[Rfam]
RNA sequence: AAAGCAGACUUAUCUUAUCACCGUGAAUUCAUUUCAAGGAGGAAAGUCCGAACACCAAAGAGUAAUCAUAGCGGAUAACAUCCGUCCAGUGUAAACUGAGGACAAGUGCAACAGAAAGCAAGUACAGUUCGGCUGUAGUGAAACCAGGUAAACUCUAUGAGGUGCAAUGCCAUGUAUAUUAGAGCUUGAGGGCUACUCGCUCGAUUCUAAAGGGUAGGCAGAUAGAUUCUAAGAGUAAUUUUAGAACUAGAUAAAUGAUAAGAAUCCUAAACUGGUUUUUAGGAUACAGAAUUCGGCUUACAAGUCUGCUUUUUUA
Dot-bracket structure: ((((((((((..(((((((.((.((((.....)))).))....[[[.[[[[[((((.....[...((((((((((.....)))))(((((....)))).)((...((((.............((((((...))))))..........))..)))))))))))))...((((.......(((((......((((...].))))...)))))......))))......((((((((....))))))))..........)))))))............................]]]]]]]]...))))))))))....
Numbered sequence: 001a002a003a004g005c006a007g008a009c010u011u012a013u014c015u016u017a018u019c020a021c022c023g024u025g026a027a028u029u030c031a032u033u034u035c036a037a038g039g040a041g042g043a044a045a046g047u048c049c050g051a052a053c054a055c056c057a058a059a060g061a062g063u064a065a066u067c068a069u070a071g072c073g074g075a076u077a078a079c080a081u082c083c084g085u086c087c088a089g090u091g092u093a094a095a096c097u098g099a100g101g102a103c104a105a106g107u108g109c110a111a112c113a114g115a116a117a118g119c120a121a122g123u124a125c126a127g128u129u130c131g132g133c134u135g136u137a138g139u140g141a142a143a144c145c146a147g148g149u150a151a152a153c154u155c156u157a158u159g160a161g162g163u164g165c166a167a168u169g170c171c172a173u174g175u176a177u178a179u180u181a182g183a184g185c186u187u188g189a190g191g192g193c194u195a196c197u198c199g200c201u202c203g204a205u206u207c208u209a210a211a212g213g214g215u216a217g218g219c220a221g222a223u224a225g226a227u228u229c230u231a232a233g234a235g236u237a238a239u240u241u242u243a244g245a246a247c248u249a250g251a252u253a254a255a256u257g258a259u260a261a262g263a264a265u266c267c268u269a270a271a272c273u274g275g276u277u278u279u280u281a282g283g284a285u286a287c288a289g290a291a292u293u294c295g296g297c298u299u300a301c302a303a304g305u306c307u308g309c310u311u312u313u314u315u316a
Stems, first nucleotide, its partner, number of pairs: 001312010013263007021039002024036004044299003048296005053164004062197001066160005071085005086100001087098004101155002106153002108149002123137006168220004179210005190202004227246008
The record is a 316-nucleotide RNA from Polaribacter gangjinensis, which matches "Bacterial RNase P class A" in Rfam. Pairs were carried over by alignment from the consensus structure, which is taken from published work. The match comes from Rfam's covariance-model search (194 bits). Rfam classes the family as a ribozyme. Rfam describes the family as follows. Ribonuclease P (RNase P) is a ubiquitous endoribonuclease, found in archaea, bacteria and eukarya as well as chloroplasts and mitochondria.